A member of the RNA family "TPP riboswitch aptamer (THI element)" from Ramlibacter lithotrophicus, 93 nucleotides long. Lineage of the source: Bacteria > Pseudomonadati > Pseudomonadota > Burkholderiales > Ramlibacter.
RNA sequence: GGCGACGCUCCGGGGUGUACGCGCAGCGUGCUGAGAGAAACCCGUGAACUUGAACCGGUUCAUACCGGCGGAAGAAGAGCCUCUUGCCUGGCC
Number, nucleotide and partner (000 for none) at each position: 001g000002g000003c000004g000005a000006c000007g080008c079009u078010c077011c044012g043013g042014g041015g000016u038017g031018u030019a029020c028021g027022c000023g000024c000025a000026g000027c021028g020029u019030g018031c017032u000033g000034a000035g000036a000037g000038a016039a000040a000041c014042c013043c012044g011045u000046g000047a000048a000049c074050u073051u072052g000053a000054a000055c068056c067057g066058g065059u000060u000061c000062a000063u000064a000065c058066c057067g056068g055069c000070g000071g000072a051073a050074g049075a000076a000077g010078a009079g008080c007081c000082u000083c000084u000085u000086g000087c000088c000089u000090g000091g000092c000093c000